A member of the RNA family "Glutamine riboswitch aptamer (glnA leader)" from Leptolyngbya iicbica, 92 nucleotides long. On this family, see Ren et al., Cell Rep 2015: "Structural and Dynamic Basis for Low-Affinity, High-Selectivity Binding of L-Glutamine by the Glutamine Riboswitch". Lineage of the source: Bacteria > Bacillati > Cyanobacteriota > Leptolyngbya > Leptolyngbya iicbica. A search with the family's covariance model found it, with a score of 53 bits.
[Rfam]
RNA sequence: UUCGUUCAUCCUCAUUGCCCUCACAGACGUUUAUUUUGUUGGAUUGAUGACGAAUGAGGACGGAAGUAGGGAUUCUCCCGAAGGAACGCGCC
Dot-bracket structure: ..(((((.((((((((....................................))))))))..[.....(((.....)))....)))))]...